[Rfam]
RNA sequence: UGGUGGCACCAACCGGGACUAAAGGGGGCAUUGGUCACGGUUCGUGUCACCAACCGUGACCAAUGCCCCCUUUAGUCCCGGUUGGUGCCACCAA
Numbered sequence: 001u002g003g004u005g006g007c008a009c010c011a012a013c014c015g016g017g018a019c020u021a022a023a024g025g026g027g028g029c030a031u032u033g034g035u036c037a038c039g040g041u042u043c044g045u046g047u048c049a050c051c052a053a054c055c056g057u058g059a060c061c062a063a064u065g066c067c068c069c070c071u072u073u074a075g076u077c078c079c080g081g082u083u084g085g086u087g088c089c090a091c092c093a094a
Base pairs, nucleotide, nucleotide: 003091004090005089006088007087008086009085010084011083012082013081014080015079016078017077018076019075020074021073022072023071024070025069026068027067029065030064034060035059036058037057038056044050045049
The record is a 94-nucleotide RNA sequence from Triticum urartu, which matches "MIR5387 microRNA precursor family" in Rfam.
Lineage of the source: Eukaryota > Viridiplantae > Embryophyta > Poaceae > Triticum.
Its family is annotated with miRNA-mediated post-transcriptional gene silencing and RISC complex in the Gene Ontology.